[Rfam]
RNA: MIR1886 microRNA precursor family
Organism: Solanum commersonii
RNA sequence: UGAUAUGGAAUCAGCGUUUAGACAUGCGAUUUUACGUUGAUUCCAUAUCAUG
Number, nucleotide and partner (000 for none) at each position: 001u050002g049003a048004u047005a046006u045007g044008g043009a042010a041011u040012c039013a038014g037015c036016g035017u034018u029019u028020a000021g000022a000023c000024a000025u000026g000027c000028g019029a018030u000031u000032u000033u000034a017035c016036g015037u014038u013039g012040a011041u010042u009043c008044c007045a006046u005047a004048u003049c002050a001051u000052g000